[Rfam]
RNA sequence: UACUUAUCAAGAGAGGUGGAGGGAAAGGCCCUAUGAAACCUCGGCAACCUUCAGACCCAUUUAUCUGAAAAGGUGCCAAUUCCUACUCUAGGUUAAUUAAAUUCUAGAGAAAGAUGAGAG
Number, nucleotide and partner (000 for none) at each position: 001u120002a000003c118004u117005u116006a115007u114008c113009a000010a000011g000012a000013g042014a041015g040016g039017u038018g000019g000020a000021g031022g030023g029024a000025a000026a084027g083028g082029c023030c022031c021032u000033a000034u000035g000036a000037a000038a017039c016040c015041u014042c013043g077044g076045c075046a074047a000048c073049c072050u069051u068052c067053a066054g065055a064056c000057c000058c000059a000060u000061u000062u000063a000064u055065c054066u053067g052068a051069a050070a000071a000072g049073g048074u046075g045076c044077c043078a000079a000080u000081u112082c028083c027084u026085a000086c109087u108088c107089u106090a105091g104092g000093u000094u000095a000096a000097u000098u000099a000100a000101a000102u000103u000104c091105u090106a089107g088108a087109g086110a000111a000112a081113g008114a007115u006116g005117a004118g003119a000120g001
A member of the RNA family "SAM riboswitch aptamer (S box leader)" from Alkaliphilus sp. B6464, 120 nucleotides long. Rfam links the family to the GO term regulation of gene expression. The source organism's lineage runs through Bacteria, Bacillati, Bacillota, Peptostreptococcales and Alkaliphilus.